RNA: Group II catalytic intron D1-D4-3
Organism: Vibrio aerogenes
RNA sequence: UUGCUGGCCAACGGCAGGGUCUGAAUGAAGCGAUAGGAAGUUAACAGUACACAACGCAAGUGAACCUGCUUCGGCAAUGUAGAUGGGUAAGCGUCCCAAAUCUCGCGAAGCCCAAUACUCAGUCAGAUCUACGCUGUGUUUGAGGGUGGCAUUGUUAACAGGGAGCCAGU
Numbered sequence: 001u002u003g004c005u006g007g008c009c010a011a012c013g014g015c016a017g018g019g020u021c022u023g024a025a026u027g028a029a030g031c032g033a034u035a036g037g038a039a040g041u042u043a044a045c046a047g048u049a050c051a052c053a054a055c056g057c058a059a060g061u062g063a064a065c066c067u068g069c070u071u072c073g074g075c076a077a078u079g080u081a082g083a084u085g086g087g088u089a090a091g092c093g094u095c096c097c098a099a100a101u102c103u104c105g106c107g108a109a110g111c112c113c114a115a116u117a118c119u120c121a122g123u124c125a126g127a128u129c130u131a132c133g134c135u136g137u138g139u140u141u142g143a144g145g146g147u148g149g150c151a152u153u154g155u156u157a158a159c160a161g162g163g164a165g166c167c168a169g170u
Stems, first nucleotide, its partner, number of pairs: 001017006030170002042157006050148003065145003074137003078133007085113004091106003